[Rfam]
RNA sequence: AUUUUUCAAGCGCUGAGUUCUCUGUCAGAGAAACGGGGGAACCAAAUUUCCGGGGUGAAUCCACACGGGUGUUUUACUUCGUGCGGUAGGGUUAUCUUUCGACCCGAACCCGUCAGCUAACUUCGUAAGCGUUGAAAGGAGAUGUA
Numbered sequence: 001a002u003u004u005u006u007c008a009a010g011c012g013c014u015g016a017g018u019u020c021u022c023u024g025u026c027a028g029a030g031a032a033a034c035g036g037g038g039g040a041a042c043c044a045a046a047u048u049u050c051c052g053g054g055g056u057g058a059a060u061c062c063a064c065a066c067g068g069g070u071g072u073u074u075u076a077c078u079u080c081g082u083g084c085g086g087u088a089g090g091g092u093u094a095u096c097u098u099u100c101g102a103c104c105c106g107a108a109c110c111c112g113u114c115a116g117c118u119a120a121c122u123u124c125g126u127a128a129g130c131g132u133u134g135a136a137a138g139g140a141g142a143u144g145u146a
Base pairs, nucleotide, nucleotide: 011131012130013129014128018032019031020030021029022028033126034125035124036123037122038121043052053111054110055109061086062085064083065082066081067080068079069078089105090104091103092102
Dot-bracket structure: ..........((((...(((((.....)))))((((((....(........)(((.....((.((((((........)))))).))..((((.........))))...))).........)))))).))))...............
Notes
This 146-nucleotide RNA from Peptococcaceae bacterium CEB3 belongs to the Rfam family "c-di-AMP riboswitch aptamer (ydaO/yuaA leader)". Rfam links the family to the GO terms regulation of gene expression and cyclic-di-AMP binding. Rfam 15.1 lists 7,607 matches to the family in 2,262 species. The match comes from Rfam's covariance-model search (101 bits). The source organism's lineage runs through Bacteria, Bacillati, Clostridia, Eubacteriales and Peptococcaceae.